[Rfam]
This 96-nucleotide RNA sequence from Hordeum vulgare belongs to the Rfam family "Small nucleolar RNA Z43". The organism belongs to Hordeum vulgare, within Eukaryota.
RNA sequence: GGACAGUGAAGAUUGAUAUUUGGCGAGGUUUGUAGUAGCUGGCAUUUGUUUGCCUUGCGGACCAUACUACUAUAUCAUCAUCUAUACUCCCAGUCC
Numbered sequence: 001g002g003a004c005a006g007u008g009a010a011g012a013u014u015g016a017u018a019u020u021u022g023g024c025g026a027g028g029u030u031u032g033u034a035g036u037a038g039c040u041g042g043c044a045u046u047u048g049u050u051u052g053c054c055u056u057g058c059g060g061a062c063c064a065u066a067c068u069a070c071u072a073u074a075u076c077a078u079c080a081u082c083u084a085u086a087c088u089c090c091c092a093g094u095c096c
Stems, first nucleotide, its partner, number of pairs: 001096004044056001
About this RNA: The family's RNA type in Rfam is C/D-box small nucleolar RNA. The match comes from Rfam's covariance-model search (57 bits). Gene Ontology terms of the family: nucleolus and RNA processing.